[Rfam]
Nucleotides: 402
Stems, first nucleotide, its partner, number of pairs: 001398004006393005011387001012349007020044008049385003053382005058232004065285004070228005075089005090104001091102004105223002110221002112217003127162002129158008170188006190212001191210008236306004265297006277289004313332008
Number, partner (000 for none) and nucleotide at each position: 001398c002397g003396a004395g005000c006393c007392g008391g009390c010389c011387g012349g013348g014347c015346g016345g017344c018343c019000g020044c021043g022042g023041c024040g025039g026038g027037g028000u029000g030000c031000a032000c033000g034000c035000a036000c037027c038026u039025c040024c041023g042022u043021c044020g045000a046000g047000g048000a049385a050384g051383g052000u053382c054381c055380g056379g057378g058232c059231u060230c061229c062000a063000c064000a065285g066284g067283g068282c069000a070228g071227g072226a073225u074224g075089g076088u077087g078086g079085g080000u081000a082000a083000c084000a085079c086078c087077c088076a089075c090104c091102c092101g093100g094099g095000g096000u097000g098000a099094c100093c101092c102091g103000c104090g105223g106222g107000a108000a109000a110221g111220u112217g113216c114215c115000a116000c117000a118000g119000a120000a121000a122000g123000c124000a125000g126000a127162c128161c129158g130157c131156c132155g133154g134153g135152a136151g137000a138000c139000g140000u141000c142000c143000c144000a145000g146000g147000a148000c149000g150000c151136u152135u153134c154133c155132c156131g157130g158129u159000a160000a161128g162127g163000g164000u165000g166000a167000a168000a169000c170188g171187g172186u173185g174184g175183u176000g177000u178000a179000a180000g181000a182000g183175a184174c185173c186172a187171c188170c189000a190212g191210c192209g193208c194207c195206c196205a197204g198203g199000g200000u201000g202000a203198c204197c205196u206195g207194g208193g209192c210191g211000g212190c213000u214000c215114g216113g217112u218000a219000a220111a221110c222106c223105c224074c225073a226072u227071c228070c229061g230060g231059a232058g233000c234000a235000a236306g237305g238304u239303c240000a241000a242000g243000a244000g245000g246000a247000g248000c249000c250000a251000c252000a253000c254000c255000g256000u257000g258000g259000c260000u261000c262000u263000g264000c265297g266296c267295g268294g269293a270292u271000g272000u273000c274000c275000g276000a277289g278288g279287g280286c281000g282068g283067c284066c285065c286280g287279c288278c289277c290000g291000a292270g293269u294268c295267c296266g297265c298000g299000g300000g301000u302000a303239g304238a305237c306236c307000g308000c309000a310000c311000g312000a313332g314331g315330c316329c317328g318327g319326u320325g321000g322000c323000a324000a325320c326319a327318c328317c329316g330315g331314u332313c333000c334000c335000a336000g337000a338000u339000g340000g341000a342000u343018g344017g345016c346015c347014g348013c349012c350000u351000c352000c353000c354000c355000c356000g357000g358000c359000a360000c361000a362000g363000c364000c365000c366000g367000g368000g369000g370000a371000g372000a373000c374000a375000g376000a377000a378057c379056c380055c381054g382053g383051c384050c385049u386000a387011c388000a389010g390009g391008c392007c393006g394000a395004c396003u397002c398001g399000u400000c401000c402000g